RNA sequence: AAGAGGCCCGAGCUAAUAAAUACUGAUAGGAUUGGCUCGAGAACAAA
Numbered sequence: 001a002a003g004a005g006g007c008c009c010g011a012g013c014u015a016a017u018a019a020a021u022a023c024u025g026a027u028a029g030g031a032u033u034g035g036c037u038c039g040a041g042a043a044c045a046a047a
Stems, first nucleotide, its partner, number of pairs: 007041001010038008

The family of this 47-nucleotide RNA sequence from Ziziphus jujuba is "Plastid-rpl16 group II-D1 intron". About the family: Plastid-rpl16 is a non-coding RNA (ncRNA) recognised in plastids. Pairs were carried over by alignment from the consensus structure, which was predicted with LocARNA. Its family is annotated with Group II intron splicing in the Gene Ontology. Taxonomically the source falls in Ziziphus (Eukaryota, Viridiplantae, Embryophyta, rosids). The family has 538 seed sequences and 1,446 matches in Rfam 15.1.